Record summary: Shown here is a 66-nucleotide sequence from Musa balbisiana, a member of the family "Plastid-clpP 5UTR RNA". A reference for the family is Richter et al. (2023), "Retrograde signaling in plants: A critical review focusing on the GUN pathway and beyond", Plant Commun. Pairs were carried over by alignment from the consensus structure, which was predicted with LocARNA.
[Rfam]
RNA sequence: AAUUCUUUCGUAGAACAAAAGAAGCAGAUCUAUUCUAUACCCGAUAAGUACCAAUACGCAAUGGGA
Numbered sequence: 001a002a003u004u005c006u007u008u009c010g011u012a013g014a015a016c017a018a019a020a021g022a023a024g025c026a027g028a029u030c031u032a033u034u035c036u037a038u039a040c041c042c043g044a045u046a047a048g049u050a051c052c053a054a055u056a057c058g059c060a061a062u063g064g065g066a
Stems, first nucleotide, its partner, number of pairs: 003019002007015003040065003048057003
Notes:
Plastid clpP is a non-coding RNA (ncRNA) recognised in plastids. It was found in the prime untranslated region (5UTR) of a protease complex subunit (clpP) in plastids, suggesting a posible cis-regulatory function. Rfam 15.1 lists 2,105 matches to the family in 526 species. A search with the family's covariance model found it, with a score of 76 bits.